[Rfam]
RNA sequence: AAUCCCUGUGAAGAUCUUAUGUAGAAAUAAAAGUAGUGGCCUGAUAUCCAUUGAUGAUAAUUUGUUCCGAGGGAUU
Numbered sequence: 001a002a003u004c005c006c007u008g009u010g011a012a013g014a015u016c017u018u019a020u021g022u023a024g025a026a027a028u029a030a031a032a033g034u035a036g037u038g039g040c041c042u043g044a045u046a047u048c049c050a051u052u053g054a055u056g057a058u059a060a061u062u063u064g065u066u067c068c069g070a071g072g073g074a075u076u
Stems, first nucleotide, its partner, number of pairs: 001076006
RNA: Small nucleolar RNA R21